Rfam assigns this 584-nucleotide part of an RNA from Thermococcales archaeon T17a-60 to the family "Archaeal small subunit ribosomal RNA". The family has 86 seed sequences and 709 matches in Rfam 15.1.
RNA sequence: UGGCGGGGGAGCACUACAAGGGGUGGAGCGUGCGGUUUAAUUGGAUUCAACGCCGGGAACCUCACCGGGGGCGACGGCAGGAUGAAGGCCAGGCUGAAGGUCUUGCCGGACGCGCCGAGAGGAGGUGCAUGGCCGCCGUCAGCUCGUACCGUGAGGCGUCCACUUAAGUGUGGUAACGAGCGAGACCCGCGCCCCCAGUUGCCAGUCCCUCCCGCUCGGGAGGGAGGCACUCUGGGGGGACUGCCGGCGAUAAGCCGGAGGAAGGGGCGGGCGACGGUAGGUCAGUAUGCCCCGAAACCCCCGGGCUACACGCGCGCUACAAUGGGCGGGACAAUGGGACCCGACCCCGAAAGGGGAAGGGAAUCCCCUAAACCCGCCCUCAGUUCGGAUCGCGGGCUGCAACUCGCCCGCGUGAAGCUGGAAUCCCUAGUACCCGCGCGUCAUCAUCGCGCGGCGAAUACGUCCCUGCUCCUUGCACACACCGCCCGUCACUCCACCCGAGCGGGGCCCAGGUGAGGCCCGAUCUCCUUCGGGAGGUCGGGUCGAGCCUGGGCUCCGUGAGGGGGGAGAAGUCGUAACAAGGU
Numbered sequence: 001u002g003g004c005g006g007g008g009g010a011g012c013a014c015u016a017c018a019a020g021g022g023g024u025g026g027a028g029c030g031u032g033c034g035g036u037u038u039a040a041u042u043g044g045a046u047u048c049a050a051c052g053c054c055g056g057g058a059a060c061c062u063c064a065c066c067g068g069g070g071g072c073g074a075c076g077g078c079a080g081g082a083u084g085a086a087g088g089c090c091a092g093g094c095u096g097a098a099g100g101u102c103u104u105g106c107c108g109g110a111c112g113c114g115c116c117g118a119g120a121g122g123a124g125g126u127g128c129a130u131g132g133c134c135g136c137c138g139u140c141a142g143c144u145c146g147u148a149c150c151g152u153g154a155g156g157c158g159u160c161c162a163c164u165u166a167a168g169u170g171u172g173g174u175a176a177c178g179a180g181c182g183a184g185a186c187c188c189g190c191g192c193c194c195c196c197a198g199u200u201g202c203c204a205g206u207c208c209c210u211c212c213c214g215c216u217c218g219g220g221a222g223g224g225a226g227g228c229a230c231u232c233u234g235g236g237g238g239g240a241c242u243g244c245c246g247g248c249g250a251u252a253a254g255c256c257g258g259a260g261g262a263a264g265g266g267g268c269g270g271g272c273g274a275c276g277g278u279a280g281g282u283c284a285g286u287a288u289g290c291c292c293c294g295a296a297a298c299c300c301c302c303g304g305g306c307u308a309c310a311c312g313c314g315c316g317c318u319a320c321a322a323u324g325g326g327c328g329g330g331a332c333a334a335u336g337g338g339a340c341c342c343g344a345c346c347c348c349g350a351a352a353g354g355g356g357a358a359g360g361g362a363a364u365c366c367c368c369u370a371a372a373c374c375c376g377c378c379c380u381c382a383g384u385u386c387g388g389a390u391c392g393c394g395g396g397c398u399g400c401a402a403c404u405c406g407c408c409c410g411c412g413u414g415a416a417g418c419u420g421g422a423a424u425c426c427c428u429a430g431u432a433c434c435c436g437c438g439c440g441u442c443a444u445c446a447u448c449g450c451g452c453g454g455c456g457a458a459u460a461c462g463u464c465c466c467u468g469c470u471c472c473u474u475g476c477a478c479a480c481a482c483c484g485c486c487c488g489u490c491a492c493u494c495c496a497c498c499c500g501a502g503c504g505g506g507g508c509c510c511a512g513g514u515g516a517g518g519c520c521c522g523a524u525c526u527c528c529u530u531c532g533g534g535a536g537g538u539c540g541g542g543u544c545g546a547g548c549c550u551g552g553g554c555u556c557c558g559u560g561a562g563g564g565g566g567g568a569g570a571a572g573u574c575g576u577a578a579c580a581a582g583g584u
Stems, first nucleotide, its partner, number of pairs: 001479002003476003007473007016463002020427005025320001027318008035309002041056004065304007075117004080111001087107003091103003121293002124291004130287002132282003135278004142181006149156002160173004187270004192238007202227002206225007241261002244258005324379007336367003341360002345356004386417001391412007434454007482582001484579001487575002490572001492569004497564003502559013517544012
Dot-bracket structure: (((((.(((((((..((..((((((.((((((((((....((((........))))........(((((((...((((.(......(((.(((.......))).)))...)..))))...((.((((..(((((((((...((((((.((....))...((((......))))..)))))).....((((.(((((((...((..(((((((......)))))))))....)))))))..((.(((((.....))))).)).....))))....)))).)))...))))))))....)))))))...)).)))))))).)...(((((((.....(((..((..((((....))))..))....))).....)))))))......(....(((((((........)))))))....).....)))))......(((((((.......))))))).......))...)))))))))).))..(.(..((.(.((((.(((..(((((((((((((..((((((((((((....))))))))))))..)))))))))))))..))).))))..).))...)..)..

Notes: Lineage of the source: Archaea > Methanobacteriati > Methanobacteriota > Thermococci > Thermococcales.